A member of the RNA family "Small nucleolar RNA SNORA68" from Chaetura pelagica, 132 nucleotides long.
The source organism's lineage runs through Eukaryota, Dipnotetrapodomorpha, Coelurosauria, Strisores and Chaetura.
The literature on the family includes a 1997 paper in Genes Dev by Ganot et al., "The family of box ACA small nucleolar RNAs is defined by an evolutionarily conserved secondary structure and ubiquitous sequence elements essential for RNA accumulation".
Rfam classes the family as an H/ACA-box small nucleolar RNA.
U68 is a member of the H/ACA class of small nucleolar RNAs (snoRNAs) which act as guides in the the modification of uridines to pseudouridines.
Its family is annotated with nucleolus and RNA processing in the Gene Ontology.
[Rfam]
RNA sequence: AAUGCACAUAAAAACCCAAAGAAUAUUGUUCUUAAUAACAAUAUUCUUGUCAUGUGUGCAAAUAUCAAAUGUAUCUUGUCGCCUUUCAAAAGCUGCAGUGCUGCUGAAAGUGAAAUUUAAGGUUCUACAUUA
Numbered sequence: 001a002a003u004g005c006a007c008a009u010a011a012a013a014a015c016c017c018a019a020a021g022a023a024u025a026u027u028g029u030u031c032u033u034a035a036u037a038a039c040a041a042u043a044u045u046c047u048u049g050u051c052a053u054g055u056g057u058g059c060a061a062a063u064a065u066c067a068a069a070u071g072u073a074u075c076u077u078g079u080c081g082c083c084u085u086u087c088a089a090a091a092g093c094u095g096c097a098g099u100g101c102u103g104c105u106g107a108a109a110g111u112g113a114a115a116u117u118u119a120a121g122g123u124u125c126u127a128c129a130u131u132a
Base pairs, nucleotide, nucleotide: 003060004059005058006057007056008055009054021046022045023044024043025042026041027040028039029038030037071125073123074122075121076120077119083110084109085108086107087106088105091102092101093100
Dot-bracket structure: ..(((((((...........((((((((((......)))))))))).......)))))))..........(.(((((.....((((((..(((......)))..))))))........))))).).......